[Rfam]
RNA sequence: CCCUGGGCGGUGCCUCCAGGACUGUCCAACCUGAGAAUGGUGUCUCCAGGGUCAGUCUCAGGUUCGUCAGACCGUGAGGGGCCACCCCUUU
Numbered sequence: 001c002c003c004u005g006g007g008c009g010g011u012g013c014c015u016c017c018a019g020g021a022c023u024g025u026c027c028a029a030c031c032u033g034a035g036a037a038u039g040g041u042g043u044c045u046c047c048a049g050g051g052u053c054a055g056u057c058u059c060a061g062g063u064u065c066g067u068c069a070g071a072c073c074g075u076g077a078g079g080g081g082c083c084a085c086c087c088c089u090u091u
Base pairs, nucleotide, nucleotide: 005088006087007086009083010082011081013079014078015077016076019073020072022070023069024068026066028064029063030062031061032060033059034058035057036056038054039053

A member of the RNA family "mir-1388 microRNA precursor family" from Crocuta crocuta, 91 nucleotides long. On this family, see Soares et al., BMC Genomics 2009: "Parallel DNA pyrosequencing unveils new zebrafish microRNAs". The family has 12 seed sequences and 600 matches in Rfam 15.1. Rfam links the family to the GO terms RISC complex and miRNA-mediated post-transcriptional gene silencing.